[Rfam]
Nucleotides: 205
Stems, first nucleotide, its partner, number of pairs: 015048004024040004171205015
Number, partner (000 for none) and nucleotide at each position: 001000g002000g003000u004000c005000a006000a007000c008000g009000c010000a011000a012000g013000g014000a015048g016047g017046c018045a019000g020000a021000c022000a023000u024040g025039g026038g027037a028000c029000g030000u031000a032000c033000a034000u035000a036000c037027u038026c039025u040024c041000u042000g043000a044000a045018u046017g047016u048015c049000c050000u051000g052000a053000u054000a055000g056000u057000c058000g059000g060000u061000g062000c063000a064000g065000c066000g067000u068000u069000c070000g071000u072000g073000u074000u075000c076000g077000u078000g079000g080000u081000a082000u083000c084000c085000a086000u087000g088000c089000u090000c091000u092000u093000c094000a095000u096000c097000u098000g099000a100000g101000c102000c103000g104000c105000c106000a107000c108000g109000a110000g111000g112000u113000u114000c115000c116000c117000a118000c119000u120000a121000a122000c123000a124000g125000g126000u127000c128000a129000u130000a131000u132000a133000u134000c135000u136000c137000g138000c139000a140000u141000c142000c143000a144000u145000g146000a147000c148000c149000g150000u151000u152000u153000g154000a155000u156000a157000u158000c159000a160000g161000c162000a163000c164000u165000u166000c167000c168000a169000a170000u171205g172204a173203a174202a175201c176200g177199c178198a179197u180196g181195c182194u183193c184192c185191u186000c187000g188000c189000a190000a191185a192184g193183g194182a195181g196180c197179a198178u199177g200176c201175g202174u203173u204172u205171u
Rhizobiales sRNA Atu_C9: a 205-nucleotide RNA from Rhizobium sp. YS-1r.
The literature on the family includes a 2012 paper in RNA Biol by Wilms et al., "Deep sequencing uncovers numerous small RNAs on all four replicons of the plant pathogen Agrobacterium tumefaciens".